[Rfam]
RNA sequence: AGGGCAACAAUGAUGUUAGAUCCAUACCCAUCCUUGCACUAUGAGGUUACCCAUGAAGAAAACAUUGGGGAAUUUGUAGUCUGAGAUGCUC
Numbered sequence: 001a002g003g004g005c006a007a008c009a010a011u012g013a014u015g016u017u018a019g020a021u022c023c024a025u026a027c028c029c030a031u032c033c034u035u036g037c038a039c040u041a042u043g044a045g046g047u048u049a050c051c052c053a054u055g056a057a058g059a060a061a062a063c064a065u066u067g068g069g070g071a072a073u074u075u076g077u078a079g080u081c082u083g084a085g086a087u088g089c090u091c
Stems, first nucleotide, its partner, number of pairs: 002091005008085001

The family of this 91-nucleotide sequence from Oryza brachyantha is "Small nucleolar RNA snoR26". It is annotated as a C/D-box small nucleolar RNA. Rfam links the family to the GO terms nucleolus and RNA processing. The literature on the family includes a 2001 paper in RNA by Brown et al., "Multiple snoRNA gene clusters from Arabidopsis".